The record is a 104-nucleotide RNA sequence from Sorghum bicolor, which matches "MIR168 microRNA precursor family" in Rfam. On this family, see Jagadeeswaran et al., New Phytol 2009: "Cloning and characterization of small RNAs from Medicago truncatula reveals four novel legume-specific microRNA families". A search with the family's covariance model found it, with a score of 70 bits. Rfam 15.1 lists 518 matches to the family in 218 species.
RNA sequence: CGCCGCGCCGCCUCGGGCUCGCUUGGUGCAGAUCGGGACCUGCCGCCGUGCUCGGACGGGACAGAUCCCGCCUUGCACCAAGUGAAUCCGAGCCGGAGCAGCCG
Numbered sequence: 001c002g003c004c005g006c007g008c009c010g011c012c013u014c015g016g017g018c019u020c021g022c023u024u025g026g027u028g029c030a031g032a033u034c035g036g037g038a039c040c041u042g043c044c045g046c047c048g049u050g051c052u053c054g055g056a057c058g059g060g061a062c063a064g065a066u067c068c069c070g071c072c073u074u075g076c077a078c079c080a081a082g083u084g085a086a087u088c089c090g091a092g093c094c095g096g097a098g099c100a101g102c103c104g
Base pairs, nucleotide, nucleotide: 013091014090017087019085020084023081024080025079026078027077028076029075030074031073034070035069036068037067038066040064041063